[Rfam]
About this RNA: Shown here is a 98-nucleotide RNA sequence from Aquilegia coerulea, a member of the family "Small nucleolar RNA Z157/R69/R10". The source organism's lineage runs through Eukaryota, Tracheophyta, Euphyllophyta, Mesangiospermae and Aquilegia. Gene Ontology terms of the family: RNA processing and nucleolus.
RNA sequence: AUUGGUGUGGUGAUGAAGUCUUGUAUUAUGGACUAGAGUUUCUGAUCUAGGUUUAACCCAGAAGUUGAAGACUAACCCUUGGCUGUCUGAGCACCAAU
Dot-bracket structure: ((((((((..............................((((...(.(.((......)).).)...))))....................))))))))